[Rfam]
RNA sequence: GCCCGUUCCUAAGUACUGGUGCCGUUAGGAGUGAUUUGAAAUCUCCUGCAGCUCGAGUGCUUAUCAAUGGGG
Dot-bracket structure: .((((((..((((((((.(....((.(((((...........)))))))....).))))))))..)))))).
RNA: mir-252 microRNA precursor family